[Rfam]
RNA sequence: CUUCAAUACUAGUUAGUAAUUCUUAAAA
Numbered sequence: 001c002u003u004c005a006a007u008a009c010u011a012g013u014u015a016g017u018a019a020u021u022c023u024u025a026a027a028a
Base pairs, nucleotide, nucleotide: 007018008017009016010015
CRISPR RNA direct repeat element: a 28-nucleotide RNA sequence from Diabrotica virgifera. Lineage of the source: Eukaryota > Eumetazoa > Protostomia > Luperini > Diabrotica virgifera. Pairs were carried over by alignment from the consensus structure, which was predicted with WAR. It scores 36 bits against the family's covariance model. Rfam links the family to the GO term defense response.